[Rfam]
RNA sequence: AUCCUCCGGUUCCCUUUCCCAUCAGAUCUGAACCCUGGUCUUGGUGGUCGUAAGAGGAGGAAUAGUAGUACUGAAGCUGUGCUCAUGGUGUCUGCUUAUAUAGCAUAUGGGCUAGUUUCAAACAAGG
Numbered sequence: 001a002u003c004c005u006c007c008g009g010u011u012c013c014c015u016u017u018c019c020c021a022u023c024a025g026a027u028c029u030g031a032a033c034c035c036u037g038g039u040c041u042u043g044g045u046g047g048u049c050g051u052a053a054g055a056g057g058a059g060g061a062a063u064a065g066u067a068g069u070a071c072u073g074a075a076g077c078u079g080u081g082c083u084c085a086u087g088g089u090g091u092c093u094g095c096u097u098a099u100a101u102a103g104c105a106u107a108u109g110g111g112c113u114a115g116u117u118u119c120a121a122a123c124a125a126g127g
Stems, first nucleotide, its partner, number of pairs: 003060005019047005025040004077115003081112004086105002
Dot-bracket structure: ..(((((...........(((((.((((........))))..)))))........)))))................(((.((((.((................))...)))))))............
Rfam assigns this 127-nucleotide RNA from Physeter macrocephalus to the family "Small nucleolar RNA SNORA61". The base pairs follow the family's consensus structure, which was predicted with PFOLD. Its family is annotated with RNA processing and nucleolus in the Gene Ontology. The match comes from Rfam's covariance-model search (118 bits). Rfam describes the family as follows. ACA61 is a member of the H/ACA class of snoRNA that guide the sites of modification of uridines to pseudouridines. The source organism's lineage runs through Eukaryota, Opisthokonta, Euteleostomi, Boreoeutheria and Physeter.